[Rfam]
RNA sequence: AAAAUUAAAUAAAGUAUUCCGUAGACAGUAGGUGCGAGAGCAUAAUAGUUUAACUACCUGCCGAGGGCCCCGUAAUAAGAUAUAAUUAUAGGUCUUCUCACGUCUGCGAGAGGACCUUUGUUAUUUUAAAA
Numbered sequence: 001a002a003a004a005u006u007a008a009a010u011a012a013a014g015u016a017u018u019c020c021g022u023a024g025a026c027a028g029u030a031g032g033u034g035c036g037a038g039a040g041c042a043u044a045a046u047a048g049u050u051u052a053a054c055u056a057c058c059u060g061c062c063g064a065g066g067g068c069c070c071c072g073u074a075a076u077a078a079g080a081u082a083u084a085a086u087u088a089u090a091g092g093u094c095u096u097c098u099c100a101c102g103u104c105u106g107c108g109a110g111a112g113g114a115c116c117u118u119u120g121u122u123a124u125u126u127u128a129a130a131a
Stems, first nucleotide, its partner, number of pairs: 028061006034041002091116009
Ribosomal protein L10 leader: a 131-nucleotide RNA from Clostridium putrefaciens. The source organism's lineage runs through Bacteria, Bacillati, Bacillota, Clostridiaceae and Clostridium. The match comes from Rfam's covariance-model search (70 bits). From the family's description: This family is a putative r-protein leader autoregulatory structure found in B. subtilis and other low-GC Gram-positive bacteria. It is located in the 5' untranslated regions of mRNAs encoding ribosomal proteins L10 and L12 (rplJ-rplL). The base pairs follow the family's consensus structure, which was predicted with CMfinder.